[Rfam]
RNA sequence: CCGUCGCUCAUUGGGGAGUAGCCGCCCCGCGGCAUUGCGCACCGCUGUACCCGGUGCGUCGAACGUGCGGUUCGCGGGGGCGCCUGUCAACAGACUUGGCCUGCAUGGCCAUGGCAGCCGCAGCCUCUGGCCUGGCGAGACCGAUGAUCCACACACGCGCCGCAACAGGGCCCGGCGUGUCGUGGGUCGUCGCUCGUUCACAUCUCGGCCCGAGGA
Number, nucleotide and partner (000 for none) at each position: 001c000002c000003g000004u000005c000006g000007c000008u000009c000010a000011u000012u000013g000014g000015g000016g000017a000018g000019u000020a000021g000022c000023c000024g000025c000026c078027c077028c076029g075030c074031g073032g072033c000034a000035u000036u000037g000038c000039g000040c000041a000042c000043c000044g000045c000046u000047g000048u000049a000050c000051c000052c000053g000054g000055u000056g000057c000058g000059u000060c000061g000062a000063a000064c000065g000066u000067g000068c000069g000070g000071u000072u032073c031074g030075c029076g028077g027078g026079g000080g121081c120082g119083c000084c117085u116086g115087u114088c113089a112090a000091c000092a000093g000094a000095c000096u000097u111098g110099g109100c108101c107102u000103g000104c000105a000106u000107g101108g100109c099110c098111a097112u089113g088114g087115c086116a085117g084118c000119c082120g081121c080122a000123g000124c000125c000126u215127c214128u213129g000130g000131c000132c000133u000134g000135g000136c000137g000138a000139g000140a000141c000142c000143g000144a000145u000146g000147a000148u000149c000150c000151a000152c000153a000154c000155a000156c000157g000158c000159g000160c000161c000162g000163c000164a000165a000166c000167a000168g000169g000170g000171c000172c000173c000174g000175g000176c000177g000178u000179g000180u000181c000182g000183u000184g000185g000186g000187u000188c000189g000190u000191c000192g000193c000194u000195c000196g000197u000198u000199c000200a000201c000202a000203u000204c000205u000206c000207g000208g000209c000210c000211c000212g000213a128214g127215g126216a000